[Rfam]
RNA sequence: GACUUGAAAUGCCAAACCUUGAGCAAUCAGGGGACGGAAAGCCAACGGGACUUGGGUUCCAAUGAAUUCCAAUGAAUUGACUCCGUCUGUCAUUGAAUCUGCUUUCCCUUGUUAAUAUAGUUUCUCCACAAGAUGUUAUUCUCCAAGUUGGCCGGGUUGCCGUU
Numbered sequence: 001g002a003c004u005u006g007a008a009a010u011g012c013c014a015a016a017c018c019u020u021g022a023g024c025a026a027u028c029a030g031g032g033g034a035c036g037g038a039a040a041g042c043c044a045a046c047g048g049g050a051c052u053u054g055g056g057u058u059c060c061a062a063u064g065a066a067u068u069c070c071a072a073u074g075a076a077u078u079g080a081c082u083c084c085g086u087c088u089g090u091c092a093u094u095g096a097a098u099c100u101g102c103u104u105u106c107c108c109u110u111g112u113u114a115a116u117a118u119a120g121u122u123u124c125u126c127c128a129c130a131a132g133a134u135g136u137u138a139u140u141c142u143c144c145a146a147g148u149u150g151g152c153c154g155g156g157u158u159g160c161c162g163u164u
Stems, first nucleotide, its partner, number of pairs: 012037002017032006040158004046154003049149003056143001
c-di-GMP-I riboswitch aptamer: a 164-nucleotide sequence from Geotalea uraniireducens. Its family is annotated with cyclic-di-GMP binding in the Gene Ontology. GEMM was predicted in a large-scale screen for bacterial structured RNA regulatory elements. Genes associated with GEMM are involved in a diverse array of functions, including chemotaxis regulation, signal transduction, secretion and chitin.